The family of this 92-nucleotide RNA from Astyanax mexicanus is "mir-1388 microRNA precursor family".
On this family, see Soares et al., BMC Genomics 2009: "Parallel DNA pyrosequencing unveils new zebrafish microRNAs".
The match comes from Rfam's covariance-model search (89 bits).
Taxonomically the source falls in Astyanax (Eukaryota, Opisthokonta, Osteoglossocephalai, Characiformes).
Rfam links the family to the GO terms miRNA-mediated post-transcriptional gene silencing and RISC complex.
RNA sequence: CCCUGAGCAGCGCUUUCGAGGACUGUCCAACCUGAGAAUGCUGAAUUCUGGGUCAAUCUCAGGUUCGUCAGCCCAUGAAAGGCUGUUUCCAU
Number, nucleotide and partner (000 for none) at each position: 001c000002c000003c000004u000005g089006a088007g087008c085009a084010g083011c082012g000013c081014u080015u079016u078017c077018g000019a000020g074021g073022a000023c071024u070025g069026u000027c067028c000029a065030a064031c063032c062033u061034g060035a059036g058037a057038a000039u055040g054041c000042u000043g000044a000045a000046u000047u000048c000049u000050g000051g000052g000053u000054c040055a039056a000057u037058c036059u035060c034061a033062g032063g031064u030065u029066c000067g027068u000069c025070a024071g023072c000073c021074c020075a000076u000077g017078a016079a015080a014081g013082g011083c010084u009085g008086u000087u007088u006089c005090c000091a000092u000